Nucleotides: 148
Base pairs, nucleotide, nucleotide: 011133012132013131014130018041019040020039021038022037023036024035025034026033027032042128043127044126045125046124047123052065066113067112068111074087075086076085077084090107091106092105093104
Number, partner (000 for none) and nucleotide at each position: 001000g002000a003000g004000c005000c006000a007000g008000c009000a010000c011133c012132g013131c014130c015000g016000a017000g018041u019040u020039g021038u022037c023036g024035g025034g026033g027032u028000g029000a030000c031000c032027g033026u034025c035024c036023c037022g038021a039020c040019g041018a042128g043127c044126c045125g046124g047123g048000g049000a050000a051000c052065c053000a054000c055000g056000c057000a058000a059000c060000a061000c062000c063000c064000c065052g066113g067112g068111g069000u070000g071000a072000a073000u074087c075086c076085g077084c078000g079000a080000c081000u082000u083000c084077g085076c086075g087074g088000u089000a090107g091106g092105g093104c094000g095000a096000c097000a098000c099000u100000u101000c102000c103000c104093g105092c106091c107090c108000g109000a110000a111068c112067c113066c114000g115000u116000c117000a118000g119000c120000u121000a122000a123047c124046c125045c126044g127043g128042u129000a130014g131013g132012c133011g134000g135000u136000c137000a138000g139000g140000g141000a142000a143000g144000a145000a146000g147000g148000g
Rfam assigns this 148-nucleotide RNA sequence from Natronosporangium hydrolyticum to the family "c-di-AMP riboswitch aptamer (ydaO/yuaA leader)".